[Rfam]
RNA sequence: AAGAUGUUCCGCUGCAAUGAUAUAAAAAGCCUUGUCAUGAGCGUCUG
Numbered sequence: 001a002a003g004a005u006g007u008u009c010c011g012c013u014g015c016a017a018u019g020a021u022a023u024a025a026a027a028a029g030c031c032u033u034g035u036c037a038u039g040a041g042c043g044u045c046u047g
Stems, first nucleotide, its partner, number of pairs: 003045007013037002015034003
RNA: Ribosomal protein L19 leader